[Rfam]
RNA sequence: UCAGGAACGGCCGAGUGUGGUGUAUUGUACUCGUAGAAAUAACAGUAUUGCACCUGUCCCGGCCGAUCUUGG
Number, nucleotide and partner (000 for none) at each position: 001u000002c071003a070004g069005g068006a000007a000008c065009g064010g063011c062012c061013g060014a000015g057016u056017g055018u000019g054020g053021u052022g051023u050024a049025u000026u047027g046028u045029a000030c000031u000032c000033g000034u000035a000036g000037a000038a000039a000040u000041a000042a000043c000044a000045g028046u027047a026048u000049u024050g023051c022052a021053c020054c019055u017056g016057u015058c000059c000060c013061g012062g011063c010064c009065g008066a000067u000068c005069u004070u003071g002072g000
RNA: ciona-mir-92 microRNA precursor family